[Rfam]
Actinobacteria sRNA Ms_IGR-5: a 174-nucleotide RNA from Mycobacterium sp. ACS1612. It scores 171 bits against the family's covariance model. The literature on the family includes a 2013 paper in RNA by Li et al., "Identification of small RNAs in Mycobacterium smegmatis using heterologous Hfq". NCBI's taxonomy places the organism under Bacteria, Actinomycetes, Mycobacteriales, Mycobacteriaceae, Mycobacterium.

RNA sequence: ACACAAGGAAGGAGGUGGUCCGACCAAUUGAGUGACUUACGGACAUGUGAGGUGGCUGCGAGCUAGCAGCACCGGGGAGUCUCCUGCGCGCGCCGGCGAAUUCCCCGCAGUCACCCGGCCCCCGAGCCCCUCGGUUUUGUCCAACCAGGUACGACGGCUCGGGGGCCGCUUCAU
Numbered sequence: 001a002c003a004c005a006a007g008g009a010a011g012g013a014g015g016u017g018g019u020c021c022g023a024c025c026a027a028u029u030g031a032g033u034g035a036c037u038u039a040c041g042g043a044c045a046u047g048u049g050a051g052g053u054g055g056c057u058g059c060g061a062g063c064u065a066g067c068a069g070c071a072c073c074g075g076g077g078a079g080u081c082u083c084c085u086g087c088g089c090g091c092g093c094c095g096g097c098g099a100a101u102u103c104c105c106c107g108c109a110g111u112c113a114c115c116c117g118g119c120c121c122c123c124g125a126g127c128c129c130c131u132c133g134g135u136u137u138u139g140u141c142c143a144a145c146c147a148g149g150u151a152c153g154a155c156g157g158c159u160c161g162g163g164g165g166c167c168g169c170u171u172c173a174u
Base pairs, nucleotide, nucleotide: 015059016058017057018056019055062097063096064095066093067092069091070090072088074085075084076083116168117167118166119165120164121163122162123161124160125159126158127157128156130149131148133146134145135144
Dot-bracket structure: ..............(((((...................................)))))..(((.((.((.(.(((......)))..).)))).)))..................(((((((((((((.((.(((........))).))......)))))))))))))......